[Rfam]
RNA: Small nucleolar RNA SNORD103/SNORD85
Organism: Bucco capensis
RNA sequence: GCUGGCAGUGAUGACUCACUUGCCCUCACGGAGAGCAGCGUUCGCUGACGAGAGCAGCUCUGUGUGCUCAGUGGAGCUGAGCCAGA
Numbered sequence: 001g002c003u004g005g006c007a008g009u010g011a012u013g014a015c016u017c018a019c020u021u022g023c024c025c026u027c028a029c030g031g032a033g034a035g036c037a038g039c040g041u042u043c044g045c046u047g048a049c050g051a052g053a054g055c056a057g058c059u060c061u062g063u064g065u066g067c068u069c070a071g072u073g074g075a076g077c078u079g080a081g082c083c084a085g086a
Stems, first nucleotide, its partner, number of pairs: 002085005